Shown here is a 114-nucleotide RNA sequence from Drosophila melanogaster, a member of the family "Potassium channel RNA editing signal". The sequence is in the family's curated seed alignment. Lineage of the source: Eukaryota > Ecdysozoa > Brachycera > Eremoneura > Sophophora. The family's consensus secondary structure is taken from published work. Rfam's curators write: This family represents a group of sequences related to the human potassium channel Kv1.1 hairpin element which directs the efficient modification of an adenosine to inosine by an adenosine deaminase acting on RNA (ADAR). The ADAR modification causes an isoleucine/valine recoding event which lies in the ion-conducting pore of the potassium channel. It is thought that this editing event targets the process of fast inactivation and allows a more rapid recovery from inactivation at negative potentials.
[Rfam]
RNA sequence: CUGGGAUAUGGCGACAUGGUGCCAGAGACAAUAGCUGGCAAAAUUGUGGGCGGCGUCUGCUCGCUUAGCGGUGUGCUGGUCAUCGCCUUACCUGUACCUGUUAUCGUAUCGAAC
Numbered sequence: 001c002u003g004g005g006a007u008a009u010g011g012c013g014a015c016a017u018g019g020u021g022c023c024a025g026a027g028a029c030a031a032u033a034g035c036u037g038g039c040a041a042a043a044u045u046g047u048g049g050g051c052g053g054c055g056u057c058u059g060c061u062c063g064c065u066u067a068g069c070g071g072u073g074u075g076c077u078g079g080u081c082a083u084c085g086c087c088u089u090a091c092c093u094g095u096a097c098c099u100g101u102u103a104u105c106g107u108a109u110c111g112a113a114c
Base pairs, nucleotide, nucleotide: 002113005110007108008107009106010105011104013102014101015100016099018097021095022094037077038076039075040074050062